[Rfam]
RNA sequence: GACAGCUGUGAUGAGCCCAUUUUACAGUUACAGACCUGUACUCCUGUGGAAAUGAUCACAUGGUCAAAGAACAUCUAAGGGACUGAGGUGUG
Dot-bracket structure: .(((.(................................................................................).))).
RNA: Small nucleolar RNA SNORD25